The record is a 68-nucleotide sequence from Nematostella vectensis, which matches "mir-9413 microRNA precursor family" in Rfam. Rfam links the family to the GO terms miRNA-mediated post-transcriptional gene silencing and RISC complex. Lineage of the source: Eukaryota > Eumetazoa > Actiniaria > Edwardsiidae > Nematostella.

[Rfam]
RNA sequence: CUGCUGAAACCAUAUCACUUAUCACUUAAUGGGUUAUCCUAAAAGUGAUCAGUGGUAAGGUUUCAGUA
Numbered sequence: 001c002u003g004c005u006g007a008a009a010c011c012a013u014a015u016c017a018c019u020u021a022u023c024a025c026u027u028a029a030u031g032g033g034u035u036a037u038c039c040u041a042a043a044a045g046u047g048a049u050c051a052g053u054g055g056u057a058a059g060g061u062u063u064c065a066g067u068a
Stems, first nucleotide, its partner, number of pairs: 002068010013057007021049007031039003